RNA sequence: UGAUAUCAGGGUCAAAAGGUCAGAAGUCCGAUGCAAGCUUGCUUGCGUGAGGAUUUUUGACAUUGUGACCCGCCAAAAAUAUGAGUAAGAAGCCAUUUUUCAUAGAAAAAUGUGCGAAUUACGAAUGUUUUUGAGAAUUGUGGGAGCACGCAGUGCGGAGCAAUUCGAUAUCA
Dot-bracket structure: (((((((..((((...(.(((((((((((...(((((....)))))....))))))))))).)...))))....((((((((..((((...((((((((((...)))))))).))...))))..))))))))..(((((((....((((...))))...))))))))))))))
Numbered sequence: 001u002g003a004u005a006u007c008a009g010g011g012u013c014a015a016a017a018g019g020u021c022a023g024a025a026g027u028c029c030g031a032u033g034c035a036a037g038c039u040u041g042c043u044u045g046c047g048u049g050a051g052g053a054u055u056u057u058u059g060a061c062a063u064u065g066u067g068a069c070c071c072g073c074c075a076a077a078a079a080u081a082u083g084a085g086u087a088a089g090a091a092g093c094c095a096u097u098u099u100u101c102a103u104a105g106a107a108a109a110a111u112g113u114g115c116g117a118a119u120u121a122c123g124a125a126u127g128u129u130u131u132u133g134a135g136a137a138u139u140g141u142g143g144g145a146g147c148a149c150g151c152a153g154u155g156c157g158g159a160g161c162a163a164u165u166c167g168a169u170a171u172c173a
Stems, first nucleotide, its partner, number of pairs: 001173007010070004017063001019061011033046005075132008085122004092115002094112008135166007146156004
Shown here is a 173-nucleotide RNA sequence from Firmicutes bacterium CAG:882, a member of the family "Clostridiales-1 RNA". The organism belongs to Bacillota, within Bacteria. The match comes from Rfam's covariance-model search (132 bits).